[Rfam]
RNA sequence: UACAUCUGUGGCAAUGAUAUCUGCCCUUAACCGCCCAAAAAGCUGAUGAUGUCUACUUAAUU
Numbered sequence: 001u002a003c004a005u006c007u008g009u010g011g012c013a014a015u016g017a018u019a020u021c022u023g024c025c026c027u028u029a030a031c032c033g034c035c036c037a038a039a040a041a042g043c044u045g046a047u048g049a050u051g052u053c054u055a056c057u058u059a060a061u062u
Stems, first nucleotide, its partner, number of pairs: 010025004016053006033043002
RNA: Fluoride riboswitch aptamer (crcB RNA motif)
Organism: Sphingobacterium deserti